The record is a 79-nucleotide RNA sequence from Kingdonia uniflora, which matches "Small nucleolar RNA SNORD25" in Rfam. Its Rfam clan is "SNORD25 clan". A reference for the family is Qu et al. (2001), "Identification of 10 novel snoRNA gene clusters from Arabidopsis thaliana", Nucleic Acids Res.

RNA sequence: GUAAUCAAUGAUGACUCAAUAGACCUGUAAUGAACGCUGAGAUGAUAGCGUCAAUGAACAUCUAAGGGACUGAGAUUUU
Numbered sequence: 001g002u003a004a005u006c007a008a009u010g011a012u013g014a015c016u017c018a019a020u021a022g023a024c025c026u027g028u029a030a031u032g033a034a035c036g037c038u039g040a041g042a043u044g045a046u047a048g049c050g051u052c053a054a055u056g057a058a059c060a061u062c063u064a065a066g067g068g069a070c071u072g073a074g075a076u077u078u079u
Stems, first nucleotide, its partner, number of pairs: 003077004

Pairs were carried over by alignment from the consensus structure, which was predicted with PFOLD. NCBI's taxonomy places the organism under Eukaryota, Embryophyta, Magnoliopsida, Circaeasteraceae, Kingdonia.